Shown here is a 78-nucleotide RNA sequence from Ramphastos sulfuratus, a member of the family "Small nucleolar RNA SNORD74". It is annotated as a C/D-box small nucleolar RNA. Taxonomically the source falls in Ramphastos (Eukaryota, Archelosauria, Archosauria, Telluraves). The match comes from Rfam's covariance-model search (69 bits). Rfam links the family to the GO terms RNA processing and nucleolus. The family has 22 seed sequences and 929 matches in Rfam 15.1.
RNA sequence: GUGCCUGGAUAUGAUGAAAAUUAUGUUGGUGGGGACAUCUGAGAUCCUGAAGAAUACCAACGUAUCUGAGCCGGGCAU
Number, nucleotide and partner (000 for none) at each position: 001g078002u077003g076004c075005c074006u000007g000008g000009a000010u000011a000012u000013g000014a000015u000016g000017a000018a000019a000020a000021u000022u000023a000024u000025g000026u000027u000028g000029g000030u000031g000032g000033g000034g000035a000036c000037a000038u000039c000040u000041g000042a000043g000044a000045u000046c000047c000048u000049g000050a000051a000052g000053a000054a000055u000056a000057c000058c000059a000060a000061c000062g000063u000064a000065u000066c000067u000068g000069a000070g000071c000072c000073g000074g005075g004076c003077a002078u001